RNA sequence: UGCGGUGGCCUGCCGAAUUCAUGCAGCCAGGAGGCAUGGAACCGGGGACCCAAAGGGCCCUUAAAAGCGUGGCCAGGGGUGAAUCGGCGCAUUUCGCCGUAGGGCAUCUUCCCAGCCCGAAUCCGUCAGCUAACCCGGUAGGCAUCAGUGGAAGUCCCA
Numbered sequence: 001u002g003c004g005g006u007g008g009c010c011u012g013c014c015g016a017a018u019u020c021a022u023g024c025a026g027c028c029a030g031g032a033g034g035c036a037u038g039g040a041a042c043c044g045g046g047g048a049c050c051c052a053a054a055g056g057g058c059c060c061u062u063a064a065a066a067g068c069g070u071g072g073c074c075a076g077g078g079g080u081g082a083a084u085c086g087g088c089g090c091a092u093u094u095c096g097c098c099g100u101a102g103g104g105c106a107u108c109u110u111c112c113c114a115g116c117c118c119g120a121a122u123c124c125g126u127c128a129g130c131u132a133a134c135c136c137g138g139u140a141g142g143c144a145u146c147a148g149u150g151g152a153a154g155u156c157c158c159a
Base pairs, nucleotide, nucleotide: 011144012143013142014141018040019039020038021037022036023035024034041139042138043137044136045135046134051076077124078123079122085099086098087097088096102118103117104116105115
Background: Rfam assigns this 159-nucleotide RNA sequence from Streptosporangium subroseum to the family "c-di-AMP riboswitch aptamer (ydaO/yuaA leader)". The match comes from Rfam's covariance-model search (85 bits).